[Rfam]
RNA sequence: AGACUUGCCCAGUUGCUGCACUAAACGUGUAGAGGAAAAUCCACACUAGCACUUUCUGAGAUGAAAGUAGUGAUCAUGCUGAGUCUAAUAAAUUCAGGCAGUAGCAAUACUGACAACUAGUGACACAGAAACUAAGUCUGCUCAAUGAGUAAGAGUGCAAAGGUUAAACUUCAUGAGCUAGAAAUCUAAAUUAUGGUAAGAGAGUCUGAUUUAGGGAAAUGAACCGACGUCAGGAGGGUAGUAAUACCUUAGAUAAAUAACUGGGGCUCAUUAUUGAGUACAAAAAGUGGUUUAUAGAG
Numbered sequence: 001a002g003a004c005u006u007g008c009c010c011a012g013u014u015g016c017u018g019c020a021c022u023a024a025a026c027g028u029g030u031a032g033a034g035g036a037a038a039a040u041c042c043a044c045a046c047u048a049g050c051a052c053u054u055u056c057u058g059a060g061a062u063g064a065a066a067g068u069a070g071u072g073a074u075c076a077u078g079c080u081g082a083g084u085c086u087a088a089u090a091a092a093u094u095c096a097g098g099c100a101g102u103a104g105c106a107a108u109a110c111u112g113a114c115a116a117c118u119a120g121u122g123a124c125a126c127a128g129a130a131a132c133u134a135a136g137u138c139u140g141c142u143c144a145a146u147g148a149g150u151a152a153g154a155g156u157g158c159a160a161a162g163g164u165u166a167a168a169c170u171u172c173a174u175g176a177g178c179u180a181g182a183a184a185u186c187u188a189a190a191u192u193a194u195g196g197u198a199a200g201a202g203a204g205u206c207u208g209a210u211u212u213a214g215g216g217a218a219a220u221g222a223a224c225c226g227a228c229g230u231c232a233g234g235a236g237g238g239u240a241g242u243a244a245u246a247c248c249u250u251a252g253a254u255a256a257a258u259a260a261c262u263g264g265g266g267c268u269c270a271u272u273a274u275u276g277a278g279u280a281c282a283a284a285a286a287g288u289g290g291u292u293u294a295u296a297g298a299g
Base pairs, nucleotide, nucleotide: 004299005298006297007295008265009264010263011262012261013260014259016032017031018030019029020028021027037293038292039291041290042289043288044287046181047180048179049178050177051068052067053066054065055064056063074176075175076174077173078172079097080096081095082094083093084092098114099112100111101110102109103108115171116170120169121168122165123164124163137154138153139152140150141149142148143147185201186200187199205234206233207232208231209230210229235250236249237248238247239246240245267278268277269276270275